RNA sequence: ACGGAAGCCCGGUGAGGCCUAGGUCGAUCCGGAAGAGAAGGUUCGAUCUCCCGACCCGGGCGCCCAGCACGGUGCCCGGCACCCACGCGGAGUCAUAGCCGCGAAAAUGGCAGAAGUGUUGCGGACCUGCGUAAUUGCGAAGAGCGGAAGCGUCGACGGCCCUUUGGGUGGGGCUGCAGCCAGAAGCGUCGCGAGAUCGCCGAGGCCAACCCACGCAGCCCAGAAAUGCACGCUUGGUAACCGAGUCCCGUGCUAGCGGGCGGCGGACCGAUCAUUCGGAACGUCGCCCGCUCUACACG
Numbered sequence: 001a002c003g004g005a006a007g008c009c010c011g012g013u014g015a016g017g018c019c020u021a022g023g024u025c026g027a028u029c030c031g032g033a034a035g036a037g038a039a040g041g042u043u044c045g046a047u048c049u050c051c052c053g054a055c056c057c058g059g060g061c062g063c064c065c066a067g068c069a070c071g072g073u074g075c076c077c078g079g080c081a082c083c084c085a086c087g088c089g090g091a092g093u094c095a096u097a098g099c100c101g102c103g104a105a106a107a108u109g110g111c112a113g114a115a116g117u118g119u120u121g122c123g124g125a126c127c128u129g130c131g132u133a134a135u136u137g138c139g140a141a142g143a144g145c146g147g148a149a150g151c152g153u154c155g156a157c158g159g160c161c162c163u164u165u166g167g168g169u170g171g172g173g174c175u176g177c178a179g180c181c182a183g184a185a186g187c188g189u190c191g192c193g194a195g196a197u198c199g200c201c202g203a204g205g206c207c208a209a210c211c212c213a214c215g216c217a218g219c220c221c222a223g224a225a226a227u228g229c230a231c232g233c234u235u236g237g238u239a240a241c242c243g244a245g246u247c248c249c250g251u252g253c254u255a256g257c258g259g260g261c262g263g264c265g266g267a268c269c270g271a272u273c274a275u276u277c278g279g280a281a282c283g284u285c286g287c288c289c290g291c292u293c294u295a296c297a298c299g
Base pairs, nucleotide, nucleotide: 003064004063007061008060009059010058011057012056016052017051021049022048025045026044027043029041030040066254067253068252069251070250071249072248077243078242079241083237084236085235087233088232089231092229093228098111099110100109118219119218120217121216122215123214124207126205127204128203129200130199131198135194136193137192138191139190140189144187145186147181150180151179157176158175159174160173161172162171163170256291257290258289259288260287261286262285263284264283265282268279269278270277
Rfam assigns this 299-nucleotide RNA from Mycobacterium intracellulare to the family "Mycobacterium smegmatis small RNA 1".
Taxonomically the source falls in Mycobacterium intracellulare (Bacteria, Mycobacteriaceae, Mycobacterium, Mycobacterium avium complex (MAC)).
It scores 216 bits against the family's covariance model.
Its family is annotated with RNA polymerase binding in the Gene Ontology.
Rfam's curators write: Mycobacterium smegmatis small RNA 1 is highly expressed during stationary phase of growth. Ms1 RNA directly interacts with RNA polymerase (RNAP), but in a different way than 6S, which is present in other bacteria. Ms1 does not require the presence of the main sigma factor for RNAP interaction. There is evidence that Ms1 RNA may function similar to 6S RNA in M. smegmatis which does not have 6S RNA.